Shown here is a 335-nucleotide part of an RNA from Glycocaulis alkaliphilus, a member of the family "Bacterial large subunit ribosomal RNA". A search with the family's covariance model found it, with a score of 2750 bits.
RNA sequence: UGAGAGAACUCUGUUGAAGGAACUCGGCAAAUUGCUCCCGUAAGUUCGCGAGAAGGGAGCCUGGCGCUGGGCAACCAGUGUCCAGGGGCACAGACCAGGGGGUGGCGACUGUUUACUAAAAACACAGGGCUCUGCGAAGUCGCAAGACGACGUAUAGGGUCUGACGCCUGCCCGGUGCCGGAAGGUUAAAAGGAGGGGUGCAAGCUCCGAAUUGAAGCCCCGGUAAACGGCGGCCGUAACUAUAACGGUCCUAAGGUAGCGAAAUUCCUUGUCGGGUAAGUUCCGACCUGCACGAAUGGCGUAACGACUUCCCCACUGUCUCCAACAGAGACUCA
Numbered sequence: 001u002g003a004g005a006g007a008a009c010u011c012u013g014u015u016g017a018a019g020g021a022a023c024u025c026g027g028c029a030a031a032u033u034g035c036u037c038c039c040g041u042a043a044g045u046u047c048g049c050g051a052g053a054a055g056g057g058a059g060c061c062u063g064g065c066g067c068u069g070g071g072c073a074a075c076c077a078g079u080g081u082c083c084a085g086g087g088g089c090a091c092a093g094a095c096c097a098g099g100g101g102g103u104g105g106c107g108a109c110u111g112u113u114u115a116c117u118a119a120a121a122a123c124a125c126a127g128g129g130c131u132c133u134g135c136g137a138a139g140u141c142g143c144a145a146g147a148c149g150a151c152g153u154a155u156a157g158g159g160u161c162u163g164a165c166g167c168c169u170g171c172c173c174g175g176u177g178c179c180g181g182a183a184g185g186u187u188a189a190a191a192g193g194a195g196g197g198g199u200g201c202a203a204g205c206u207c208c209g210a211a212u213u214g215a216a217g218c219c220c221c222g223g224u225a226a227a228c229g230g231c232g233g234c235c236g237u238a239a240c241u242a243u244a245a246c247g248g249u250c251c252u253a254a255g256g257u258a259g260c261g262a263a264a265u266u267c268c269u270u271g272u273c274g275g276g277u278a279a280g281u282u283c284c285g286a287c288c289u290g291c292a293c294g295a296a297u298g299g300c301g302u303a304a305c306g307a308c309u310u311c312c313c314c315a316c317u318g319u320c321u322c323c324a325a326c327a328g329a330g331a332c333u334c335a
Stems, first nucleotide, its partner, number of pairs: 001335004009330008018321003035059005044049001060086005065080006087091001099314004104309002106306002110124003127162008135152001139148003165301004170231003175228002177224005184219003190213002195208005232250006251255001261288001271287006